TPP riboswitch aptamer (THI element): a 117-nucleotide RNA sequence from Lawsonibacter faecis. The base pairs follow the family's consensus structure, which is taken from published work. Rfam's curators write: Vitamin B(1) in its active form thiamin pyrophosphate (TPP) is an essential coenzyme that is synthesised by coupling of pyrimidine and thiazole moieties in bacteria. The source organism's lineage runs through Bacteria, Bacillati, Eubacteriales, Oscillospiraceae and Lawsonibacter. Rfam links the family to the GO term thiamine pyrophosphate binding.

RNA sequence: AUCGAAUAGCAGGGGCGCUGGACGCAAGUCCGGCUGAGAUGCGGGGCGUAAUGCCGCCCCCCGUCCCUUGAACCUGAUCCGGGUAAUGCCGGCGUAGGAAGAUGAUUCGGCUGUUGU
Numbered sequence: 001a002u003c004g005a006a007u008a009g010c011a012g013g014g015g016c017g018c019u020g021g022a023c024g025c026a027a028g029u030c031c032g033g034c035u036g037a038g039a040u041g042c043g044g045g046g047c048g049u050a051a052u053g054c055c056g057c058c059c060c061c062c063g064u065c066c067c068u069u070g071a072a073c074c075u076g077a078u079c080c081g082g083g084u085a086a087u088g089c090c091g092g093c094g095u096a097g098g099a100a101g102a103u104g105a106u107u108c109g110g111c112u113g114u115u116g117u
Stems, first nucleotide, its partner, number of pairs: 007104002010101001011068004017034005041061001043059003073098004079092004